Rfam assigns this 172-nucleotide sequence from Abiotrophia defectiva to the family "Group II catalytic intron D1-D4-3".
The organism belongs to Abiotrophia defectiva, within Bacteria.
It is one of the family's seed sequences.

RNA sequence: UCCAUUGUGAGGUGGAAUCUGAAGAAAGUCGGAUGGCAAAUCUCCAGUCUGACAAAUAGAAAUCACAUCAGGCUAUGGCUAAGGAUAAGGUUGCCUGACAAACUGAAGUCCAAUAACUACUCGGAAUUAGCUGUGGUAAAUGUGGUAGAUAGGUGGAGAGAAAGAAACGUGU
Numbered sequence: 001u002c003c004a005u006u007g008u009g010a011g012g013u014g015g016a017a018u019c020u021g022a023a024g025a026a027a028g029u030c031g032g033a034u035g036g037c038a039a040a041u042c043u044c045c046a047g048u049c050u051g052a053c054a055a056a057u058a059g060a061a062a063u064c065a066c067a068u069c070a071g072g073c074u075a076u077g078g079c080u081a082a083g084g085a086u087a088a089g090g091u092u093g094c095c096u097g098a099c100a101a102a103c104u105g106a107a108g109u110c111c112a113a114u115a116a117c118u119a120c121u122c123g124g125a126a127u128u129a130g131c132u133g134u135g136g137u138a139a140a141u142g143u144g145g146u147a148g149a150u151a152g153g154u155g156g157a158g159a160g161a162a163a164g165a166a167a168c169g170u171g172u
Stems, first nucleotide, its partner, number of pairs: 001016006028172002032168001037164001041159006047150005063145005072137003076133007083111004089104004